Actino-pnp RNA: a 60-nucleotide RNA sequence from Streptomyces sp. UH6.
It scores 64 bits against the family's covariance model.
RNA sequence: ACCGGUCCUCGGUAGUGGCCCCCGGGGAGACUGACCCGGGUGCUUCGAUCGAAGACCGGU
Numbered sequence: 001a002c003c004g005g006u007c008c009u010c011g012g013u014a015g016u017g018g019c020c021c022c023c024g025g026g027g028a029g030a031c032u033g034a035c036c037c038g039g040g041u042g043c044u045u046c047g048a049u050c051g052a053a054g055a056c057c058g059g060u
Base pairs, nucleotide, nucleotide: 001060002059003058004057005056006055007054009052010051011050012049013048017044018043019042021040022039023038024037025036026035

The base pairs follow the family's consensus structure, which is taken from published work.